Notes:
Shown here is a 493-nucleotide sequence from Trametes pubescens, a member of the family "Nuclear RNase P". Lineage of the source: Eukaryota > Fungi > Basidiomycota > Agaricomycotina > Trametes. It scores 58 bits against the family's covariance model. The family's RNA type in Rfam is ribozyme. The literature on the family includes a 1998 paper in Annu Rev Biochem by Frank and Pace, "Ribonuclease P: unity and diversity in a tRNA processing ribozyme".
RNA sequence: ACACCACAAAGGCCGCGAUGCUCACACUGUACAGGACGCCUUUGCGCGUCCUCCUCCGUGAGCGGGCUAAGGUCUGAGCGUUCGAGUCGGCGCUUGUGCGGUUCUAGCAGGACCCGGUUGGUGACAACCGCGCACGACUACCAGAAAAGAGCCAUUUACGCGUCGCCCUGAACGAGCUUUGGGUGCGUAUGCUUCCCCCUCCGACCGCGGCGCCUCCCAGGCGGCGCUGCCGAAAGACGAGGAUGGGCUUGGAACGUCGUUGGGGCACCUUGUUGCAUCGGCAGGGUGGGUCUGUCCGCUCUCCGCCACCCAGGUUUCAUCGCGUCCCGCGAGUGGCCGCCUUUGUGCGCGCCACCUCGCUCGGUUGUCGCACUCCGACCGAGACGUAGGAGGACCCUGGGUAGGAGUUUGGGCGGCCUGUCCUUUAGUGCACUUCGCGGCCCGCGGGGCUUCGUUGCCUCGCGGAACUCGAUUCAGACUAUUCUUGUGCUGU
Numbered sequence: 001a002c003a004c005c006a007c008a009a010a011g012g013c014c015g016c017g018a019u020g021c022u023c024a025c026a027c028u029g030u031a032c033a034g035g036a037c038g039c040c041u042u043u044g045c046g047c048g049u050c051c052u053c054c055u056c057c058g059u060g061a062g063c064g065g066g067c068u069a070a071g072g073u074c075u076g077a078g079c080g081u082u083c084g085a086g087u088c089g090g091c092g093c094u095u096g097u098g099c100g101g102u103u104c105u106a107g108c109a110g111g112a113c114c115c116g117g118u119u120g121g122u123g124a125c126a127a128c129c130g131c132g133c134a135c136g137a138c139u140a141c142c143a144g145a146a147a148a149g150a151g152c153c154a155u156u157u158a159c160g161c162g163u164c165g166c167c168c169u170g171a172a173c174g175a176g177c178u179u180u181g182g183g184u185g186c187g188u189a190u191g192c193u194u195c196c197c198c199c200u201c202c203g204a205c206c207g208c209g210g211c212g213c214c215u216c217c218c219a220g221g222c223g224g225c226g227c228u229g230c231c232g233a234a235a236g237a238c239g240a241g242g243a244u245g246g247g248c249u250u251g252g253a254a255c256g257u258c259g260u261u262g263g264g265g266c267a268c269c270u271u272g273u274u275g276c277a278u279c280g281g282c283a284g285g286g287u288g289g290g291u292c293u294g295u296c297c298g299c300u301c302u303c304c305g306c307c308a309c310c311c312a313g314g315u316u317u318c319a320u321c322g323c324g325u326c327c328c329g330c331g332a333g334u335g336g337c338c339g340c341c342u343u344u345g346u347g348c349g350c351g352c353c354a355c356c357u358c359g360c361u362c363g364g365u366u367g368u369c370g371c372a373c374u375c376c377g378a379c380c381g382a383g384a385c386g387u388a389g390g391a392g393g394a395c396c397c398u399g400g401g402u403a404g405g406a407g408u409u410u411g412g413g414c415g416g417c418c419u420g421u422c423c424u425u426u427a428g429u430g431c432a433c434u435u436c437g438c439g440g441c442c443c444g445c446g447g448g449g450c451u452u453c454g455u456u457g458c459c460u461c462g463c464g465g466a467a468c469u470c471g472a473u474u475c476a477g478a479c480u481a482u483u484c485u486u487g488u489g490c491u492g493u
Stems, first nucleotide, its partner, number of pairs: 001493003007487003012441007020063005034051006074477005080266004100114005115130006132261001134260005151248003442465009